[Rfam]
RNA sequence: GGGGCACACUUAGAGCCCCAUACACGACCGUGUUAAUAGUCGCGCCUUUGGCCGGACGCGACGGUUAGUGAAUC
Numbered sequence: 001g002g003g004g005c006a007c008a009c010u011u012a013g014a015g016c017c018c019c020a021u022a023c024a025c026g027a028c029c030g031u032g033u034u035a036a037u038a039g040u041c042g043c044g045c046c047u048u049u050g051g052c053c054g055g056a057c058g059c060g061a062c063g064g065u066u067a068g069u070g071a072a073u074c
Base pairs, nucleotide, nucleotide: 001019002018003017004016005015033068034067035066036065037064039062040061041060042059043058044057046055047054
Dot-bracket structure: (((((.........))))).............(((((.((((((.((......)).)))))).)))))......